[Rfam]
RNA sequence: AGGCGUGAACCGUCCGACGCGAAGCGGAGGACGGUUGCCUCCGCGAAGUAUUGUACUUCGCGGAGGCAACCGUCCUCCGCUUCGCGUCGGACGGUUCACGCC
Numbered sequence: 001a002g003g004c005g006u007g008a009a010c011c012g013u014c015c016g017a018c019g020c021g022a023a024g025c026g027g028a029g030g031a032c033g034g035u036u037g038c039c040u041c042c043g044c045g046a047a048g049u050a051u052u053g054u055a056c057u058u059c060g061c062g063g064a065g066g067c068a069a070c071c072g073u074c075c076u077c078c079g080c081u082u083c084g085c086g087u088c089g090g091a092c093g094g095u096u097c098a099c100g101c102c
Stems, first nucleotide, its partner, number of pairs: 002102034037067002041063002044060003048056003

The record is a 102-nucleotide RNA from Gadus morhua, which matches "MIR5534 microRNA precursor family" in Rfam. The base pairs follow the family's consensus structure, which was predicted with RNAalifold. A search with the family's covariance model found it, with a score of 86 bits. Taxonomically the source falls in Gadus (Eukaryota, Craniata, Teleostei, Gadariae).